[Rfam]
Phenylalanine leader peptide: a 152-nucleotide sequence from Polarella glacialis. The source organism's lineage runs through Eukaryota, Sar, Suessiales, Suessiaceae and Polarella. On this family, see Zurawski et al., Proc Natl Acad Sci U S A 1978: "Nucleotide sequence of the leader region of the phenylalanine operon of Escherichia coli". The base pairs follow the family's consensus structure, which was predicted with CMfinder. Its family is annotated with cellular amino acid metabolic process in the Gene Ontology. It scores 55 bits against the family's covariance model.
RNA sequence: UUUUCCUAACCUCAUUUUUUUCCUAGCCUCAUUUUUUUCCUAGCCUCAUUUUUUCCCUUUUCCGGCGCCGGCUGGCCAGAGCGAGAAAAAGGAGGGAGGCUAGGAAAAAAAUGAGGCUAGGGAAAAAAAGAACACCUCGAGGUGUUUUUUUU
Numbered sequence: 001u002u003u004u005c006c007u008a009a010c011c012u013c014a015u016u017u018u019u020u021u022c023c024u025a026g027c028c029u030c031a032u033u034u035u036u037u038u039c040c041u042a043g044c045c046u047c048a049u050u051u052u053u054u055c056c057c058u059u060u061u062c063c064g065g066c067g068c069c070g071g072c073u074g075g076c077c078a079g080a081g082c083g084a085g086a087a088a089a090a091g092g093a094g095g096g097a098g099g100c101u102a103g104g105a106a107a108a109a110a111a112u113g114a115g116g117c118u119a120g121g122g123a124a125a126a127a128a129a130g131a132a133c134a135c136c137u138c139g140a141g142g143u144g145u146u147u148u149u150u151u152u
Stems, first nucleotide, its partner, number of pairs: 016127004021122014036107004042073004074101004131146006
The family's RNA type in Rfam is cis-regulatory leader.